[Rfam]
This 100-nucleotide RNA sequence from Gallaecimonas xiamenensis belongs to the Rfam family "Alpha operon ribosome binding site". A reference for the family is Schlax et al. (2001), "Translational repression of the Escherichia coli alpha operon mRNA: importance of an mRNA conformational switch and a ternary entrapment complex", J Biol Chem.
RNA sequence: ACAGGCUUUCUGUUGGGUAUCCUUACGGGCUUUCCGCAGAUAGCCACCCACUUUAGGAGUGCAGUUGAUGGCCCGUAUAGCCGGCAUUAACAUUCCUGAU
Numbered sequence: 001a002c003a004g005g006c007u008u009u010c011u012g013u014u015g016g017g018u019a020u021c022c023u024u025a026c027g028g029g030c031u032u033u034c035c036g037c038a039g040a041u042a043g044c045c046a047c048c049c050a051c052u053u054u055a056g057g058a059g060u061g062c063a064g065u066u067g068a069u070g071g072c073c074c075g076u077a078u079a080g081c082c083g084g085c086a087u088u089a090a091c092a093u094u095c096c097u098g099a100u
Base pairs, nucleotide, nucleotide: 004045005044006043007042009040010039011038012037013036021084022083026075027074028073029072035098
Dot-bracket structure: ...((((.(((((.......[[...[[[[.....{))))).))))..........................]]]].......]].............}..
The bacterial alpha operon ribosome binding site is surrounded by this complex pseudoknotted structure. Translation of the mRNA produces 4 ribosomal protein products, one of which (S4) acts as a translational repressor by binding to the nested pseudoknot region. The mechanism of repression is thought to involve a conformational switch in the pseudoknot region and ribosome entrapment.